Small nucleolar RNA Z122: a 70-nucleotide sequence from Capra hircus. The source organism's lineage runs through Eukaryota, Eumetazoa, Laurasiatheria, Pecora and Capra. The match comes from Rfam's covariance-model search (40 bits). It is annotated as a C/D-box small nucleolar RNA.

[Rfam]
RNA sequence: UUGGGGAAAUGAUGAAAAAAUAAUAACUAAUAUUUUUAAUGAGUUUGCAAUUUUCAAAGUUUUUCCCUAA
Number, nucleotide and partner (000 for none) at each position: 001u070002u069003g068004g067005g066006g065007a064008a063009a062010u000011g000012a000013u000014g000015a000016a000017a000018a000019a000020a000021u000022a000023a000024u000025a000026a000027c000028u000029a000030a000031u000032a000033u000034u000035u000036u000037u000038a000039a000040u000041g000042a000043g000044u000045u000046u000047g000048c000049a000050a000051u000052u000053u000054u000055c000056a000057a000058a000059g000060u000061u000062u009063u008064u007065c006066c005067c004068u003069a002070a001